[Rfam]
RNA sequence: AUAAUGAUACUUCCGUAGCCGAAAGGCGCGGUCGGCGGAGUACCCGGCGAGGGUGAGAUUCCCAUGA
Numbered sequence: 001a002u003a004a005u006g007a008u009a010c011u012u013c014c015g016u017a018g019c020c021g022a023a024a025g026g027c028g029c030g031g032u033c034g035g036c037g038g039a040g041u042a043c044c045c046g047g048c049g050a051g052g053g054u055g056a057g058a059u060u061c062c063c064a065u066g067a
Stems, first nucleotide, its partner, number of pairs: 012064001013031004032050003036046003051063003
Rfam assigns this 67-nucleotide sequence to the family "pemK RNA". The sequence is in the family's curated seed alignment. It is annotated as a cis-regulatory element. Pairs were carried over by alignment from the consensus structure, which is taken from published work.